This 70-nucleotide sequence from Paraburkholderia saeva belongs to the Rfam family "int-alpA RNA". NCBI's taxonomy places the organism under Bacteria, Pseudomonadati, Betaproteobacteria, Burkholderiales, Paraburkholderia. By type it is a small RNA. Acidobacteria (1 example), Planctomycetes (1 example), Proteobacteria.
RNA sequence: GACGGAUCUAGCUCCCGGCUGGGGCGAAACCGGGUUCCUCACCCGGCCGGUCCGUCAUCUCUCCUUCUUC
Numbered sequence: 001g002a003c004g005g006a007u008c009u010a011g012c013u014c015c016c017g018g019c020u021g022g023g024g025c026g027a028a029a030c031c032g033g034g035u036u037c038c039u040c041a042c043c044c045g046g047c048c049g050g051u052c053c054g055u056c057a058u059c060u061c062u063c064c065u066u067c068u069u070c
Base pairs, nucleotide, nucleotide: 001056002055003054004053005052006051007050008049011025012024013023014022030046031045032044033043034042041069
Dot-bracket structure: ((((((((..((((.......))))....(((((......[)))))..))))))))............].